Annotation: The record is a 295-nucleotide sequence from Staphylothermus marinus, which matches "Archaeal signal recognition particle RNA" in Rfam. On this family, see Wild et al., Curr Opin Struct Biol 2002: "Towards the structure of the mammalian signal recognition particle". It scores 138 bits against the family's covariance model. It is annotated as a non-coding RNA gene. The family's consensus secondary structure is taken from published work. Rfam links the family to the GO terms signal recognition particle, plasma membrane targeting and SRP-dependent cotranslational protein targeting to membrane, signal sequence recognition. Its Rfam clan is "SRP clan".

RNA sequence: CACGGGCCACGGGUAGGGCCCCGGAUAAAUCCGGGGCCAGAUGAACCGUGCCUACCCCUACAAGCCGCCGCCAACCCCCAUACCAACCAAUGAUCCCCGCCCCAUGGGGUCGGCGGUGGCGGAGCCCCCUCUGGAGAGAGGGGGUUAACCGCCUUAGCCGGGGGAACCUGGCUAGGCCCGGAAGGGAGCAACCUAACCUCGGCCGUCGACGUUCAUGGGUCACCGGGGCAGAGGCUUGGUAUGGAAGGGCUCUGGCGGAUUGGCUGUAGGGGUAGGCACGGGGCCGUGGCCCGUG
Number, nucleotide and partner (000 for none) at each position: 001c295002a294003c293004g292005g291006g290007c289008c288009a287010c040011g000012g038013g037014u036015a000016g000017g000018g000019c000020c035021c034022c033023g032024g031025a030026u000027a000028a000029a000030u025031c024032c023033g022034g021035g020036g014037c013038c012039a000040g010041a000042u286043g285044a000045a000046c281047c280048g279049u278050g277051c276052c275053u274054a273055c272056c271057c270058c000059u268060a267061c266062a000063a265064g264065c263066c262067g261068c258069c257070g256071c255072c254073a253074a000075c249076c248077c247078c244079c243080a242081u241082a240083c239084c238085a237086a236087c234088c233089a000090a000091u000092g000093a000094u230095c228096c227097c226098c225099g224100c000101c219102c218103c217104a216105u215106g214107g213108g212109g210110u209111c208112g000113g207114c205115g204116g155117u000118g153119g152120c151121g150122g149123a146124g145125c144126c143127c142128c141129c140130u139131c138132u137133g000134g000135a000136g000137a132138g131139a130140g129141g128142g127143g126144g125145u124146u123147a000148a000149c122150c121151g120152c119153c118154u000155u116156a000157g000158c202159c201160g200161g199162g198163g197164g000165a000166a000167c000168c000169u000170g193171g192172c000173u000174a000175g000176g000177c186178c185179c184180g000181g000182a000183a000184g179185g178186g177187a000188g000189c000190a000191a000192c171193c170194u000195a000196a000197c163198c162199u161200c160201g159202g158203c000204c115205g114206u000207c113208g111209a110210c109211g000212u108213u107214c106215a105216u104217g103218g102219g101220u000221c000222a000223c000224c099225g098226g097227g096228g095229c000230a094231g000232a000233g088234g087235c000236u086237u085238g084239g083240u082241a081242u080243g079244g078245a000246a000247g077248g076249g075250c000251u000252c000253u073254g072255g071256c070257g069258g068259a000260u000261u067262g066263g065264c064265u063266g061267u060268a059269g000270g057271g056272g055273u054274a053275g052276g051277c050278a049279c048280g047281g046282g000283g000284c000285c043286g042287u009288g008289g007290c006291c005292c004293g003294u002295g001